[Rfam]
RNA sequence: CCACCCCCCAAAGACUCGCUCGCAAAGCUCACAAGCGGAGACUUCAUGUUUGUCUCGAGAUACUACACUUUCGCAAGCUUUGGGUAAAGUCCCCGGACCGAAAAUAGCGGAAACGCGGGAAUUCCUUGUUCCUUUUUUUCAACAGCCGUCCCUAUCCCUUCGACCGUCUUUUUCCAAAUCCUAUCCUAACUUGGGCGAAGAUAUGAGCCUUGGGUGGGACGAGGGGAGGAUUGUUGGAGGGAUGUUUUCUCGGGAGGUUUCUACGAAAUCGUCAAAUUUGGAUAGUUAUGCGAGUGCCCGUUCAAGAUCUUUGUGGUCUGCGAGGGGUACCAGAAUGGGGCUCAUUCUUGGGGGGUG
Numbered sequence: 001c002c003a004c005c006c007c008c009c010a011a012a013g014a015c016u017c018g019c020u021c022g023c024a025a026a027g028c029u030c031a032c033a034a035g036c037g038g039a040g041a042c043u044u045c046a047u048g049u050u051u052g053u054c055u056c057g058a059g060a061u062a063c064u065a066c067a068c069u070u071u072c073g074c075a076a077g078c079u080u081u082g083g084g085u086a087a088a089g090u091c092c093c094c095g096g097a098c099c100g101a102a103a104a105u106a107g108c109g110g111a112a113a114c115g116c117g118g119g120a121a122u123u124c125c126u127u128g129u130u131c132c133u134u135u136u137u138u139u140c141a142a143c144a145g146c147c148g149u150c151c152c153u154a155u156c157c158c159u160u161c162g163a164c165c166g167u168c169u170u171u172u173u174c175c176a177a178a179u180c181c182u183a184u185c186c187u188a189a190c191u192u193g194g195g196c197g198a199a200g201a202u203a204u205g206a207g208c209c210u211u212g213g214g215u216g217g218g219a220c221g222a223g224g225g226g227a228g229g230a231u232u233g234u235u236g237g238a239g240g241g242a243u244g245u246u247u248u249c250u251c252g253g254g255a256g257g258u259u260u261c262u263a264c265g266a267a268a269u270c271g272u273c274a275a276a277u278u279u280g281g282a283u284a285g286u287u288a289u290g291c292g293a294g295u296g297c298c299c300g301u302u303c304a305a306g307a308u309c310u311u312u313g314u315g316g317u318c319u320g321c322g323a324g325g326g327g328u329a330c331c332a333g334a335a336u337g338g339g340g341c342u343c344a345u346u347c348u349u350g351g352g353g354g355g356u357g
Stems, first nucleotide, its partner, number of pairs: 002357010014295006023082006038056005088342002091340004107116003177260002180257002185254003193247004232238001297327003301323002